[Rfam]
RNA sequence: UCUCAUGAUGUGACUCUCUAGAGGAAAGCGCUUACUGUUGGCUAAAAAAAUAGGAAGCGCUUCUCUUUAGAGUGUUACGCUUUGAGA
Number, nucleotide and partner (000 for none) at each position: 001u087002c086003u085004c084005a083006u000007g081008a000009u079010g078011u077012g076013a075014c074015u000016c072017u071018c070019u000020a068021g067022a066023g065024g064025a000026a062027a061028g060029c059030g058031c057032u056033u055034a000035c053036u000037g000038u052039u000040g000041g000042c000043u000044a000045a000046a000047a000048a000049a000050a000051u000052a038053g035054g000055a033056a032057g031058c030059g029060c028061u027062u026063c000064u024065c023066u022067u021068u020069a000070g018071a017072g016073u000074g014075u013076u012077a011078c010079g009080c000081u007082u000083u005084g004085a003086g002087a001

The record is an 87-nucleotide sequence from Macaca mulatta, which matches "mir-515 microRNA precursor family" in Rfam. Gene Ontology terms of the family: miRNA-mediated post-transcriptional gene silencing and RISC complex. The family has 181 seed sequences and 1,056 matches in Rfam 15.1. The organism belongs to Macaca, within Eukaryota. The sequence is in the family's curated seed alignment. The family's consensus secondary structure was predicted with RNAalifold.